[Rfam]
RNA sequence: CUCACCUUGGGAUGUUGUUAAAAUGCAGAUUCUGAUUCAGCAGAUCUGGAGUAGGGCCUGAGACUCUGCAUUUCUAACAAGCUCCCUGGUGAUACCUA
Numbered sequence: 001c002u003c004a005c006c007u008u009g010g011g012a013u014g015u016u017g018u019u020a021a022a023a024u025g026c027a028g029a030u031u032c033u034g035a036u037u038c039a040g041c042a043g044a045u046c047u048g049g050a051g052u053a054g055g056g057c058c059u060g061a062g063a064c065u066c067u068g069c070a071u072u073u074c075u076a077a078c079a080a081g082c083u084c085c086c087u088g089g090u091g092a093u094a095c096c097u098a
Stems, first nucleotide, its partner, number of pairs: 003091003009085003015080006021073003025069005031063003
mir-544 microRNA precursor family: a 98-nucleotide RNA sequence from Pteropus alecto. The family's consensus secondary structure was predicted with RNAalifold. Rfam links the family to the GO terms RISC complex and miRNA-mediated post-transcriptional gene silencing.